[Rfam]
RNA sequence: CAAGAAGUUCCACUGUCUAAAAACGCCACGUCCUGGGACUCCGCUAAAUGCUCAUCCCAUCGAAAAGCAUUGUGGCAACGCCAGUGCUAGAACGUCCUGUUCG
Numbered sequence: 001c002a003a004g005a006a007g008u009u010c011c012a013c014u015g016u017c018u019a020a021a022a023a024c025g026c027c028a029c030g031u032c033c034u035g036g037g038a039c040u041c042c043g044c045u046a047a048a049u050g051c052u053c054a055u056c057c058c059a060u061c062g063a064a065a066a067g068c069a070u071u072g073u074g075g076c077a078a079c080g081c082c083a084g085u086g087c088u089a090g091a092a093c094g095u096c097c098u099g100u101u102c103g
Stems, first nucleotide, its partner, number of pairs: 011086005017080001025076005090102004
Rfam assigns this 103-nucleotide RNA sequence from Pseudogracilibacillus auburnensis to the family "Bacillaceae-1 RNA". A search with the family's covariance model found it, with a score of 41 bits.